This 186-nucleotide RNA from Sphingobium boeckii belongs to the Rfam family "Manganese Mn2+ riboswitch aptamer (yybP-ykoY)". Gene Ontology term of the family: manganese ion binding.
RNA sequence: UCCGCAGUCACCCGGGGAGUAGCCCGCCACGUCUCAGGACGUGGAAAUCGCGUCAACAUACUUGGUCGAGAGACCAUGGCGCGAUCAGGGCCAGCCAGCGCUGGUCCAGGCGAGACCGAUGAUGCCGCACCUCCGCUUGCCGGGCGGGGGGAUGCGGUGUCGUUGGUUCAGCCUGUCGCCCGGCCU
Numbered sequence: 001u002c003c004g005c006a007g008u009c010a011c012c013c014g015g016g017g018a019g020u021a022g023c024c025c026g027c028c029a030c031g032u033c034u035c036a037g038g039a040c041g042u043g044g045a046a047a048u049c050g051c052g053u054c055a056a057c058a059u060a061c062u063u064g065g066u067c068g069a070g071a072g073a074c075c076a077u078g079g080c081g082c083g084a085u086c087a088g089g090g091c092c093a094g095c096c097a098g099c100g101c102u103g104g105u106c107c108a109g110g111c112g113a114g115a116c117c118g119a120u121g122a123u124g125c126c127g128c129a130c131c132u133c134c135g136c137u138u139g140c141c142g143g144g145c146g147g148g149g150g151g152a153u154g155c156g157g158u159g160u161c162g163u164u165g166g167u168u169c170a171g172c173c174u175g176u177c178g179c180c181c182g183g184c185c186u
Base pairs, nucleotide, nucleotide: 027044028043029042047085048084049083050082051081052080053079054078055077063076064075065074066073067072088186089185090184091183092182
Rfam's curators write: This RNA was originally discovered in E. coli during a large scale screen and was named SraF. The family was later found to exist upstream of related families of protein genes in many bacteria, including the the yybP and ykoK genes in B. subtilis.
On this family, see Argaman et al., Curr Biol 2001: "Novel small RNA-encoding genes in the intergenic regions of Escherichia coli".
The pairing is the family consensus, mapped onto this sequence.